A member of the RNA family "Flavo-1 RNA" from Chryseobacterium sp. SC28, 95 nucleotides long. The family's consensus secondary structure is taken from published work. A search with the family's covariance model found it, with a score of 63 bits.
[Rfam]
RNA sequence: ACAUAGCCCUGAUGGGAACGGCAUCCUUUUUUGUUUUGGCCUUGGCCUUGGUGCGUUGGGAAACAAAAAAGAUACAGUGGACAGCAGGUGAGUCA
Numbered sequence: 001a002c003a004u005a006g007c008c009c010u011g012a013u014g015g016g017a018a019c020g021g022c023a024u025c026c027u028u029u030u031u032u033g034u035u036u037u038g039g040c041c042u043u044g045g046c047c048u049u050g051g052u053g054c055g056u057u058g059g060g061a062a063a064c065a066a067a068a069a070a071g072a073u074a075c076a077g078u079g080g081a082c083a084g085c086a087g088g089u090g091a092g093u094c095a
Base pairs, nucleotide, nucleotide: 009087010086011085013083014082018078019077023073024072025071029068030067031066032065033064034063035062036061